[Rfam]
RNA sequence: AUUGAAACAACUAAUCAUAUUCGUAUAUCCUCAUCAAUAUGGCGUGAGGGUCUCUACAAGGAGCCAAAAAUCCUAACUACGAAUAAGGGAUACGUGUAC
Numbered sequence: 001a002u003u004g005a006a007a008c009a010a011c012u013a014a015u016c017a018u019a020u021u022c023g024u025a026u027a028u029c030c031u032c033a034u035c036a037a038u039a040u041g042g043c044g045u046g047a048g049g050g051u052c053u054c055u056a057c058a059a060g061g062a063g064c065c066a067a068a069a070a071u072c073c074u075a076a077c078u079a080c081g082a083a084u085a086a087g088g089g090a091u092a093c094g095u096g097u098a099c
Base pairs, nucleotide, nucleotide: 018085019084020083021082022081023080024079025078029049030048031047032046033045034044059074060073061072062071